[Rfam]
RNA: Voltage-gated potassium-channel Kv1.4 IRES
RNA sequence: GAAGUUUGAGAAGCGCGAAGCUGUCUAGGCCAGCGGAGGUCUGGAGAGCAAUGCCGAGUCCCCGAGCAGAGAGAACAUAGGGCUGUGCUGAUUUAAAAACAGAAAAUGCAAAGCUGGACUGAAAAUAUCCUUAGUCUUCCAAGCAAUCUGCUGAAGAGUUCCAAACGUACCUUCGCUUGGUGAGCAGAGAAGCUGCCCUAUUUUCUCCCCUUCUUCCUUCUUUCACACCUGGAACCAGCCAUUUCCUGAAGCCACCACCAUG
Numbered sequence: 001g002a003a004g005u006u007u008g009a010g011a012a013g014c015g016c017g018a019a020g021c022u023g024u025c026u027a028g029g030c031c032a033g034c035g036g037a038g039g040u041c042u043g044g045a046g047a048g049c050a051a052u053g054c055c056g057a058g059u060c061c062c063c064g065a066g067c068a069g070a071g072a073g074a075a076c077a078u079a080g081g082g083c084u085g086u087g088c089u090g091a092u093u094u095a096a097a098a099a100c101a102g103a104a105a106a107u108g109c110a111a112a113g114c115u116g117g118a119c120u121g122a123a124a125a126u127a128u129c130c131u132u133a134g135u136c137u138u139c140c141a142a143g144c145a146a147u148c149u150g151c152u153g154a155a156g157a158g159u160u161c162c163a164a165a166c167g168u169a170c171c172u173u174c175g176c177u178u179g180g181u182g183a184g185c186a187g188a189g190a191a192g193c194u195g196c197c198c199u200a201u202u203u204u205c206u207c208c209c210c211u212u213c214u215u216c217c218u219u220c221u222u223u224c225a226c227a228c229c230u231g232g233a234a235c236c237a238g239c240c241a242u243u244u245c246c247u248g249a250a251g252c253c254a255c256c257a258c259c260a261u262g
Stems, first nucleotide, its partner, number of pairs: 043246005064219003068215001069213003073209001077201007085194001087193003092188003100150004107145003115141004121136002166184001168182004